[Rfam]
RNA sequence: UUUGACGGUGAUGAGUCCUAACAGAUCUGUAAUGAUCCUUGUGGAUAUGAUCGCUUGAUCAAAGAACAUCUAAGGGACUGAGUUAUA
Numbered sequence: 001u002u003u004g005a006c007g008g009u010g011a012u013g014a015g016u017c018c019u020a021a022c023a024g025a026u027c028u029g030u031a032a033u034g035a036u037c038c039u040u041g042u043g044g045a046u047a048u049g050a051u052c053g054c055u056u057g058a059u060c061a062a063a064g065a066a067c068a069u070c071u072a073a074g075g076g077a078c079u080g081a082g083u084u085a086u087a
Stems, first nucleotide, its partner, number of pairs: 003085004
RNA: Small nucleolar RNA SNORD25
Organism: Oryza brachyantha